[Rfam]
RNA sequence: UAAUUUUGUCCUCAGUCAAAAUAUCUCAAGUUUGACCAAGUUUAUAAAGGGUAUCAACUUUUAUGACACAAAAUAGAUAUGUUAUGAAAAUAUAUUUCAUAGCAAAUGUAGUGAUACUUAUUUGGUAUCAUAAGUCCUUGUGCAUUUUUAUAUAAAUUUGGUCAAACUUAGGACAGUUUGACUUAGGAUAAAACUAG
Numbered sequence: 001u002a003a004u005u006u007u008g009u010c011c012u013c014a015g016u017c018a019a020a021a022u023a024u025c026u027c028a029a030g031u032u033u034g035a036c037c038a039a040g041u042u043u044a045u046a047a048a049g050g051g052u053a054u055c056a057a058c059u060u061u062u063a064u065g066a067c068a069c070a071a072a073a074u075a076g077a078u079a080u081g082u083u084a085u086g087a088a089a090a091u092a093u094a095u096u097u098c099a100u101a102g103c104a105a106a107u108g109u110a111g112u113g114a115u116a117c118u119u120a121u122u123u124g125g126u127a128u129c130a131u132a133a134g135u136c137c138u139u140g141u142g143c144a145u146u147u148u149u150a151u152a153u154a155a156a157u158u159u160g161g162u163c164a165a166a167c168u169u170a171g172g173a174c175a176g177u178u179u180g181a182c183u184u185a186g187g188a189u190a191a192a193a194c195u196a197g
Stems, first nucleotide, its partner, number of pairs: 005192005011186002014183007022175001024173003031166005043152008052142003056138001060134006069125001071123006
RNA: MIR1435 microRNA precursor family